Shown here is a 281-nucleotide sequence from Austrofundulus limnaeus, a member of the family "Metazoan signal recognition particle RNA". Rfam links the family to the GO terms signal recognition particle, endoplasmic reticulum targeting and SRP-dependent cotranslational protein targeting to membrane, signal sequence recognition. Clan: SRP clan. The signal recognition particle (SRP) is a universally conserved ribonucleoprotein. It is involved in the co-translational targeting of proteins to membranes. The eukaryotic SRP consists of a 300-nucleotide 7S RNA and six proteins: SRPs 72, 68, 54, 19, 14, and 9. Archaeal SRP consists of a 7S RNA and homologues of the eukaryotic SRP19 and SRP54 proteins. Eukaryotic and archaeal 7S RNAs have very similar secondary structures, as represented by this family. Eight helical elements fold into the Alu and S domains, separated by a long linker region. The Alu domain is thought to mediate the peptide chain elongation retardation function of the SRP. The universally conserved helix which interacts with the SRP54 M domain mediates signal sequence recognition. In eukaryotes and archaea, the SRP19-helix 6 complex is thought to be involved in SRP assembly and stabilises helix 8 for SRP54 binding. The Signal Recognition Particle Database (SRPDB) provides compilations of SRP components, with phylogenetic data and structural illustrations. Many sequences below the threshold for this family are clearly closely related, but are most likely to be SRP RNA derived pseudogenes. The human genome in particular is known to contain a large amount of SRP RNA related sequence, including Alu repeats. While the threshold of this family is set high so as to minimise the number of hits to such regions, it is likely that some remain. By type it is a non-coding RNA gene.

[Rfam]
RNA sequence: GCUGGGUGUGGUGGCUCACACCUGUAAUCCAAGCUGAGGCUGGAGGAUGGUUUGAGCUCAGGAGCUCUGAGCUGCAGUGAUCUAUGCUGAUCAGGUGUCCGCACUAAGUUCGGUAUCAAUAUGGUGUUUCUGGGGGAGCUCAGGACCACCAGGUUGUCUAAGGAGGGGUGAACCGGCCCAGGCGGAGCAGGUCAAAGCCCCUGUACUGCUCAGUAGUGGGAUCACACCUGAGAAUAGACACUGUUGUUCAGCCUGAGUAAAACAACGAGACACCGUCUUUU
Number, nucleotide and partner (000 for none) at each position: 001g034002c033003u032004g023005g022006g021007u020008g019009u018010g017011g016012u000013g000014g000015c000016u011017c010018a009019c008020a007021c006022c005023u004024g000025u000026a000027a000028u000029c000030c000031a000032a003033g002034c001035u000036g279037a278038g277039g276040c275041u000042g273043g000044a000045g000046g000047a000048u268049g000050g266051u265052u264053u000054g000055a000056g258057c257058u256059c255060a254061g253062g252063a000064g000065c000066u000067c251068u250069g249070a248071g247072c246073u000074g244075c243076a242077g241078u240079g239080a000081u238082c237083u236084a235085u234086g000087c232088u000089g000090a000091u231092c230093a229094g228095g227096u226097g225098u224099c220100c219101g000102c218103a217104c216105u215106a214107a000108g211109u000110u000111c208112g207113g206114u205115a204116u203117c156118a155119a154120u153121a000122u151123g150124g149125u148126g147127u000128u145129u144130c143131u142132g141133g140134g139135g000136g000137a000138g000139c134140u133141c132142a131143g130144g129145a128146c000147c126148a125149c124150c123151a122152g000153g120154u119155u118156g117157u163158c162159u000160a000161a000162g158163g157164a202165g201166g200167g199168g198169u197170g000171a000172a000173c000174c000175g193176g192177c191178c190179c000180a000181g000182g000183c000184g000185g000186a000187g000188c000189a000190g178191g177192u176193c175194a000195a000196a000197g169198c168199c167200c166201c165202u164203g116204u115205a114206c113207u112208g111209c000210u000211c108212a000213g000214u106215a105216g104217u103218g102219g100220g099221a000222u000223c000224a098225c097226a096227c095228c094229u093230g092231a091232g087233a000234a085235u084236a083237g082238a081239c079240a078241c077242u076243g075244u074245u000246g072247u071248u070249c069250a068251g067252c062253c061254u060255g059256a058257g057258u056259a000260a000261a000262a000263c000264a052265a051266c050267g000268a048269g000270a000271c000272a000273c042274c000275g040276u039277c038278u037279u036280u000281u000